[Rfam]
RNA sequence: GAGAACAAGAAGAAGCACCCGCUUCUCGCCUAAGUUAAGUAAACCUCUAGGCUGAUCGAUAAUUUCUGUUGAUUAAAGGCGGGGUGAUACUUAUCCCGCCUUUUUCUUGUCCU
Numbered sequence: 001g002a003g004a005a006c007a008a009g010a011a012g013a014a015g016c017a018c019c020c021g022c023u024u025c026u027c028g029c030c031u032a033a034g035u036u037a038a039g040u041a042a043a044c045c046u047c048u049a050g051g052c053u054g055a056u057c058g059a060u061a062a063u064u065u066c067u068g069u070u071g072a073u074u075a076a077a078g079g080c081g082g083g084g085u086g087a088u089a090c091u092u093a094u095c096c097c098g099c100c101u102u103u104u105u106c107u108u109g110u111c112c113u
Base pairs, nucleotide, nucleotide: 011026012025013024014023015022016021028052029051030050033046034045035043036042078100079099080098081097082096083095084094085093086092087091
Dot-bracket structure: ..........((((((....)))))).(((..((((.....)).))...))).........................((((((((((...)))))))))).............
Shown here is a 113-nucleotide sequence from Lactobacillus acidophilus, a member of the family "Ribosomal protein L20 leader".
Taxonomically the source falls in Lactobacillus acidophilus (Bacteria, Bacilli, Lactobacillaceae, Lactobacillus).
The literature on the family includes a 1994 paper in Prog Nucleic Acid Res Mol Biol by Zengel and Lindahl, "Diverse mechanisms for regulating ribosomal protein synthesis in Escherichia coli".
Rfam's curators put it in the seed alignment.
The family's RNA type in Rfam is cis-regulatory leader.
Rfam's curators write: This family is a putative r-protein leader autoregulatory structure found in B. subtilis and other low-GC Gram-positive bacteria.